[Rfam]
RNA: tRNA
RNA sequence: GCCAUCUUAGCUCAGAUAGGUAGAGCGUAUCCAUGGUAAGGAUAAGGUCGGCGGUUCAAAUCCGCCAGAUGGCU
Numbered sequence: 001g002c003c004a005u006c007u008u009a010g011c012u013c014a015g016a017u018a019g020g021u022a023g024a025g026c027g028u029a030u031c032c033a034u035g036g037u038a039a040g041g042a043u044a045a046g047g048u049c050g051g052c053g054g055u056u057c058a059a060a061u062c063c064g065c066c067a068g069a070u071g072g073c074u
Stems, first nucleotide, its partner, number of pairs: 001073007010026004028044005050066005